Nucleotides: 142
Base pairs, nucleotide, nucleotide: 003060004059005058006057007056008055016042017041018040019039020038021037022036023035080135081134082133083132092122093121096118097116098115099114101112102111103110
Number, partner (000 for none) and nucleotide at each position: 001000u002000u003060g004059c005058a006057u007056g008055u009000g010000a011000a012000a013000a014000u015000g016042c017041c018040u019039g020038c021037u022036u023035c024000u025000c026000a027000u028000u029000c030000c031000u032000u033000u034000a035023g036022g037021g038020g039019c040018a041017g042016g043000a044000a045000u046000a047000c048000a049000u050000c051000c052000a053000u054000a055008a056007c057006a058005u059004g060003c061000u062000a063000c064000a065000u066000u067000a068000a069000a070000a071000a072000g073000g074000a075000a076000a077000a078000a079000a080135g081134g082133a083132g084000u085000c086000u087000u088000c089000a090000a091000g092122g093121c094000u095000a096118c097116c098115a099114a100000a101112c102111u103110u104000a105000c106000a107000u108000u109000a110103g111102a112101g113000g114099u115098u116097g117000a118096g119000u120000a121093g122092u123000a124000g125000u126000a127000u128000a129000u130000u131000u132083c133082u134081c135080c136000u137000a138000c139000a140000c141000a142000a